[Rfam]
RNA sequence: CAUACCCUCGCUCUAACACCACAGUGUGGUUUGGACGUGGCCACAGUGCCGUACAAACCACAGUGUGCUGCUGGGGCGGGGGCAG
Numbered sequence: 001c002a003u004a005c006c007c008u009c010g011c012u013c014u015a016a017c018a019c020c021a022c023a024g025u026g027u028g029g030u031u032u033g034g035a036c037g038u039g040g041c042c043a044c045a046g047u048g049c050c051g052u053a054c055a056a057a058c059c060a061c062a063g064u065g066u067g068c069u070g071c072u073g074g075g076g077c078g079g080g081g082g083c084a085g
Base pairs, nucleotide, nucleotide: 012082013081014080015072017070018069020067021066022065023064025062026061027060028059029058030057031056032055033054035052036051037050
RNA: mir-497 microRNA precursor family